Overview:
Shown here is a 174-nucleotide RNA sequence from Anaerobacillus arseniciselenatis, a member of the family "glmS glucosamine-6-phosphate activated ribozyme aptamer". NCBI's taxonomy places the organism under Bacteria, Bacillati, Bacilli, Bacillaceae, Anaerobacillus. Rfam classes the family as a riboswitch. The family's consensus secondary structure is taken from published work. It scores 134 bits against the family's covariance model.
[Rfam]
RNA sequence: AUAUAAUGGAAAGCGCCUGAACUAUUCUAAUGGACGGGAAAGCUAGAAUAGUUGACGAGGAAGAGGUUUAUCGAGGAAAUCGGCGGAUGCCUCUCGGUUGCUACACCACAAUCGUAAGCUUUAGUGAAAAACAAGAAGGUGACUUCUUGAACAAAGGCUAAAGCAUUGGUGUUC
Numbered sequence: 001a002u003a004u005a006a007u008g009g010a011a012a013g014c015g016c017c018u019g020a021a022c023u024a025u026u027c028u029a030a031u032g033g034a035c036g037g038g039a040a041a042g043c044u045a046g047a048a049u050a051g052u053u054g055a056c057g058a059g060g061a062a063g064a065g066g067u068u069u070a071u072c073g074a075g076g077a078a079a080u081c082g083g084c085g086g087a088u089g090c091c092u093c094u095c096g097g098u099u100g101c102u103a104c105a106c107c108a109c110a111a112u113c114g115u116a117a118g119c120u121u122u123a124g125u126g127a128a129a130a131a132c133a134a135g136a137a138g139g140u141g142a143c144u145u146c147u148u149g150a151a152c153a154a155a156g157g158c159u160a161a162a163g164c165a166u167u168g169g170u171g172u173u174c
Base pairs, nucleotide, nucleotide: 020053021052022051023050024049025048026047027046029044062094063093064092065091066090071083072082073081074080095114096113097112098111099110100109118164119163120162121161122160123159124158132149133148134147135146136145137144138143